[Rfam]
The record is a 134-nucleotide sequence from Zapornia atra, which matches "Small nucleolar RNA SNORA41" in Rfam. The family's RNA type in Rfam is H/ACA-box small nucleolar RNA. Rfam describes the family as follows. ACA41 is a member of the H/ACA class of snoRNA that guide the sites of modification of uridines to pseudouridines. Rfam 15.1 lists 676 matches to the family in 522 species. Pairs were carried over by alignment from the consensus structure, which was predicted with PFOLD.
RNA sequence: CUCCACAGGUACUGGUCUGGAACUGUUAAGAAUGGUAGCAGUUGCAGUAUUCCCUCUGUGGAAAAUAAACUGUUACACAGCAUUAAGCUCCUUCUCAGAUCCUCUGAAAGGGGCUUCCUAUGUAACAAACAAUG
Numbered sequence: 001c002u003c004c005a006c007a008g009g010u011a012c013u014g015g016u017c018u019g020g021a022a023c024u025g026u027u028a029a030g031a032a033u034g035g036u037a038g039c040a041g042u043u044g045c046a047g048u049a050u051u052c053c054c055u056c057u058g059u060g061g062a063a064a065a066u067a068a069a070c071u072g073u074u075a076c077a078c079a080g081c082a083u084u085a086a087g088c089u090c091c092u093u094c095u096c097a098g099a100u101c102c103u104c105u106g107a108a109a110g111g112g113g114c115u116u117c118c119u120a121u122g123u124a125a126c127a128a129a130c131a132a133u134g
Stems, first nucleotide, its partner, number of pairs: 003061004017047003021043005075123003079119001087114003090110001092108003